[Rfam]
RNA sequence: AGGCCUGGGGAGAAAGAGGCAGGAUCUAAUCCGCAGCCUCCGUGGAAGCUGUUGAUCAGCUGUUGCCUCUCUCUUUCUCUCUG
Numbered sequence: 001a002g003g004c005c006u007g008g009g010g011a012g013a014a015a016g017a018g019g020c021a022g023g024a025u026c027u028a029a030u031c032c033g034c035a036g037c038c039u040c041c042g043u044g045g046a047a048g049c050u051g052u053u054g055a056u057c058a059g060c061u062g063u064u065g066c067c068u069c070u071c072u073c074u075u076u077c078u079c080u081c082u083g
Stems, first nucleotide, its partner, number of pairs: 010075004015070008024061001026059002029056003034051004